[Rfam]
RNA sequence: GCGAGACGGGUGGCCCGGUGGAGGGGCACGACCGAUAAACUGUUCUCGGACGACGCCGGGCGCAGCUCCUGUCGCGUCCGCCAAUGAUCAGCCAGCAGCCGCUGCAACCCCAGGGAG
Numbered sequence: 001g002c003g004a005g006a007c008g009g010g011u012g013g014c015c016c017g018g019u020g021g022a023g024g025g026g027c028a029c030g031a032c033c034g035a036u037a038a039a040c041u042g043u044u045c046u047c048g049g050a051c052g053a054c055g056c057c058g059g060g061c062g063c064a065g066c067u068c069c070u071g072u073c074g075c076g077u078c079c080g081c082c083a084a085u086g087a088u089c090a091g092c093c094a095g096c097a098g099c100c101g102c103u104g105c106a107a108c109c110c111c112a113g114g115g116a117g
Stems, first nucleotide, its partner, number of pairs: 048079005057071004093104004
Streptomyces-metK RNA: a 117-nucleotide sequence from Actinobacteria bacterium OV320. The source organism's lineage runs through Bacteria, Bacillati, Actinomycetota and Actinomycetes.